[Rfam]
RNA: FMN riboswitch aptamer (RFN element)
RNA sequence: ACAUUCCUUCGGGGCAGGGUGAAAUUCCCGACCGGCGGUGAUCAUGCUUUAUGCAUGUUAAGCCCGCGAGCCUCCCGAGCUGAUAGGUAGCGACGGAGUGCAGGAUCUGGUGUGAUUCCAGAGCCGACAGUACAGUCUGGAUGGGAGAAGGAUGAC
Numbered sequence: 001a002c003a004u005u006c007c008u009u010c011g012g013g014g015c016a017g018g019g020u021g022a023a024a025u026u027c028c029c030g031a032c033c034g035g036c037g038g039u040g041a042u043c044a045u046g047c048u049u050u051a052u053g054c055a056u057g058u059u060a061a062g063c064c065c066g067c068g069a070g071c072c073u074c075c076c077g078a079g080c081u082g083a084u085a086g087g088u089a090g091c092g093a094c095g096g097a098g099u100g101c102a103g104g105a106u107c108u109g110g111u112g113u114g115a116u117u118c119c120a121g122a123g124c125c126g127a128c129a130g131u132a133c134a135g136u137c138u139g140g141a142u143g144g145g146a147g148a149a150g151g152a153u154g155a156c
Stems, first nucleotide, its partner, number of pairs: 005152006017029003031136002033126002035067004062124002072100001106122005128139003